RNA sequence: CUCAUGGGGGUCGCCAUCACCCACAAGGUGGCAUGCUGAAGUUUCGCGUCCAUUUCUAUUUCUAACGGAGGACGCGUUAUG
Numbered sequence: 001c002u003c004a005u006g007g008g009g010g011u012c013g014c015c016a017u018c019a020c021c022c023a024c025a026a027g028g029u030g031g032c033a034u035g036c037u038g039a040a041g042u043u044u045c046g047c048g049u050c051c052a053u054u055u056c057u058a059u060u061u062c063u064a065a066c067g068g069a070g071g072a073c074g075c076g077u078u079a080u081g
Base pairs, nucleotide, nucleotide: 005023006022007021009020046075047074048073049072050071051070
Dot-bracket structure: ....(((.(..........))))......................((((((..................))))))......